Rfam assigns this 65-nucleotide RNA sequence from Drosophila rhopaloa to the family "U7 small nuclear RNA".

RNA sequence: AAAUUUUUAUUCUCUUUGAAAUUUGUCUUGGUGGGACCCUUUGUCUAGGCAUUGAGAGUUCCCGA
Numbered sequence: 001a002a003a004u005u006u007u008u009a010u011u012c013u014c015u016u017u018g019a020a021a022u023u024u025g026u027c028u029u030g031g032u033g034g035g036a037c038c039c040u041u042u043g044u045c046u047a048g049g050c051a052u053u054g055a056g057a058g059u060u061c062c063c064g065a
Stems, first nucleotide, its partner, number of pairs: 033062005039056003042051003
Notes: About the family: Animal histone pre-mRNAs are spliced by a different mechanism than nuclear pre-mRNAs and self-splicing introns. This processing involves the U7 snRNP, which contains only one RNA species: U7. NCBI's taxonomy places the organism under Eukaryota, Opisthokonta, Pterygota, Ephydroidea, Sophophora. Rfam 15.1 lists 10,439 matches to the family in 569 species.